[Rfam]
RNA sequence: UUCACCGUGAGGUGAAAUCUGAAGGAAGCGGAAAGCAAAACACUGGCCUGACGAACAGAAAUCGCAUACGAGGCGGUCAUAGUGGGUAAGGCAACAACUAUUGUCAAAGCCCGAUACUUACACGGAAACUAUGGACGUAGAUGCGGCAGGUAUAAGUGGGAAGGUCACGCGC
Numbered sequence: 001u002u003c004a005c006c007g008u009g010a011g012g013u014g015a016a017a018u019c020u021g022a023a024g025g026a027a028g029c030g031g032a033a034a035g036c037a038a039a040a041c042a043c044u045g046g047c048c049u050g051a052c053g054a055a056c057a058g059a060a061a062u063c064g065c066a067u068a069c070g071a072g073g074c075g076g077u078c079a080u081a082g083u084g085g086g087u088a089a090g091g092c093a094a095c096a097a098c099u100a101u102u103g104u105c106a107a108a109g110c111c112c113g114a115u116a117c118u119u120a121c122a123c124g125g126a127a128a129c130u131a132u133g134g135a136c137g138u139a140g141a142u143g144c145g146g147c148a149g150g151u152a153u154a155a156g157u158g159g160g161a162a163g164g165u166c167a168c169g170c171g172c
Stems, first nucleotide, its partner, number of pairs: 001016006028172003035165002041158004046151005062146006073138003077134007084112004090105004
RNA: Group II catalytic intron D1-D4-3
Organism: Aliidiomarina sanyensis